A member of the RNA family "Small nucleolar RNA SNORA84" from Echinops telfairi, 134 nucleotides long.
The family's RNA type in Rfam is H/ACA-box small nucleolar RNA.
Gene Ontology terms of the family: RNA processing and nucleolus.
Pairs were carried over by alignment from the consensus structure, which was predicted with WAR.
Rfam's curators put it in the seed alignment.
RNA sequence: GCCCUGUGGUUGCUGGGGGCUGUUGUUCAAGUACAGCUUUCCAGUUGAUGGCAAUGGGCCAGAGCAAUGCUGUGAUGUGUGCAUGGGGGCUGUUCCUUUUCAGCAGCCUCCAUAGCCCGGUCACUGGUACAUGG
Number, nucleotide and partner (000 for none) at each position: 001g059002c058003c057004c056005u000006g000007u050008g049009g000010u047011u000012g045013c044014u043015g042016g041017g040018g000019g037020c036021u035022g034023u033024u000025g000026u000027u000028c000029a000030a000031g000032u000033a023034c022035a021036g020037c019038u000039u000040u017041c016042c015043a014044g013045u012046u000047g010048a000049u008050g007051g000052c000053a000054a000055u000056g004057g003058g002059c001060c000061a000062g000063a000064g000065c000066a000067a000068u000069g000070c126071u000072g124073u123074g122075a121076u120077g000078u000079g000080u000081g116082c115083a113084u112085g111086g110087g000088g108089g107090c106091u105092g104093u103094u102095c000096c000097u000098u000099u000100u000101c000102a094103g093104c092105a091106g090107c089108c088109u000110c086111c085112a084113u083114a000115g082116c081117c000118c000119g000120g076121u075122c074123a073124c072125u000126g070127g000128u000129a000130c000131a000132u000133g000134g000